[Rfam]
RNA sequence: UAAACGUUUCACCGGUUUGUAAAUUGGAACUUCGUAGUUCGCCAGACGCCUUCUUCGUAUCAAGGAACUGGAAAUUGUACGGUGAGUCUGUCAUUUUAUUUUCUACUUUUCGUACCAGUC
Numbered sequence: 001u002a003a004a005c006g007u008u009u010c011a012c013c014g015g016u017u018u019g020u021a022a023a024u025u026g027g028a029a030c031u032u033c034g035u036a037g038u039u040c041g042c043c044a045g046a047c048g049c050c051u052u053c054u055u056c057g058u059a060u061c062a063a064g065g066a067a068c069u070g071g072a073a074a075u076u077g078u079a080c081g082g083u084g085a086g087u088c089u090g091u092c093a094u095u096u097u098a099u100u101u102u103c104u105a106c107u108u109u110u111c112g113u114a115c116c117a118g119u120c
Stems, first nucleotide, its partner, number of pairs: 002018004027040004042071004049065004081116004
RNA: 5'UTR enhancer element
Organism: Dianthovirus meliloti